[Rfam]
RNA sequence: AUUGGAUGAACAAAGGCUAAGUUCGCAACGUCCUGUUGCAACGCCUUUGUGACCAGCAUCCUGCAGG
Numbered sequence: 001a002u003u004g005g006a007u008g009a010a011c012a013a014a015g016g017c018u019a020a021g022u023u024c025g026c027a028a029c030g031u032c033c034u035g036u037u038g039c040a041a042c043g044c045c046u047u048u049g050u051g052a053c054c055a056g057c058a059u060c061c062u063g064c065a066g067g
Base pairs, nucleotide, nucleotide: 011049012048013047014046015045016044017043025039026038027037028036029035053067054066056064057063
A member of the RNA family "Bacillaceae-1 RNA" from Sporosarcina luteola, 67 nucleotides long. The family's RNA type in Rfam is small RNA.